Background
The record is a 95-nucleotide sequence, which matches "GP20-a RNA" in Rfam. It is annotated as a cis-regulatory element. It is one of the family's seed sequences. The base pairs follow the family's consensus structure, which is taken from published work.
RNA sequence: UUUCCUCCGCCCUCGGGAGGCUUAAACGAGAGGGACGGCGCACCGGGGAGAGGCCCCGGAUAUACAAGCCAAAUCGACGCCGGAGAAGGAGAAAA
Numbered sequence: 001u002u003u004c005c006u007c008c009g010c011c012c013u014c015g016g017g018a019g020g021c022u023u024a025a026a027c028g029a030g031a032g033g034g035a036c037g038g039c040g041c042a043c044c045g046g047g048g049a050g051a052g053g054c055c056c057c058g059g060a061u062a063u064a065c066a067a068g069c070c071a072a073a074u075c076g077a078c079g080c081c082g083g084a085g086a087a088g089g090a091g092a093a094a095a
Stems, first nucleotide, its partner, number of pairs: 005019004010034005036082005043059005
Dot-bracket structure: ....[[[[.(((((.]]]]..........))))).(((((..(((((.......)))))..................))))).............